PreQ1 (pre queuosine) riboswitch aptamer: a 44-nucleotide RNA from Paenibacillus catalpae.
RNA sequence: UCAGGAGAGGUUCGCGAACUCCCUCUAUAAAAAACUAAGAACUG
Numbered sequence: 001u002c003a004g005g006a007g008a009g010g011u012u013c014g015c016g017a018a019c020u021c022c023c024u025c026u027a028u029a030a031a032a033a034a035c036u037a038a039g040a041a042c043u044g
Stems, first nucleotide, its partner, number of pairs: 006026005016036001

Description
Taxonomically the source falls in Paenibacillus (Bacteria, Bacillati, Bacillota, Caryophanales). Rfam links the family to the GO term queuosine biosynthetic process.